Annotation:
Shown here is an 80-nucleotide RNA from Theropithecus gelada, a member of the family "Small nucleolar RNA SNORD115". It is annotated as a C/D-box small nucleolar RNA. NCBI's taxonomy places the organism under Eukaryota, Sarcopterygii, Amniota, Primates, Theropithecus. For this family Rfam cites "Identification of brain-specific and imprinted small nucleolar RNA genes exhibiting an unusual genomic organization" (Cavaille et al., Proc Natl Acad Sci U S A, 2000).
Nucleotides: 080
Stems, first nucleotide, its partner, number of pairs: 003078002005074002008071002
Number, partner (000 for none) and nucleotide at each position: 001000u002000c003078a004077u005074c006073a007000a008071u009070a010000a011000u012000g013000a014000a015000a016000c017000c018000u019000u020000c021000u022000a023000a024000u025000g026000u027000c028000u029000u030000g031000g032000u033000g034000a035000g036000a037000a038000a039000u040000a041000a042000u043000g044000a045000c046000u047000u048000a049000a050000a051000a052000u053000u054000a055000c056000a057000c058000u059000c060000a061000a062000u063000a064000g065000g066000a067000u068000u069000a070009u071008g072000c073006u074005g075000a076000g077004g078003u079000u080000c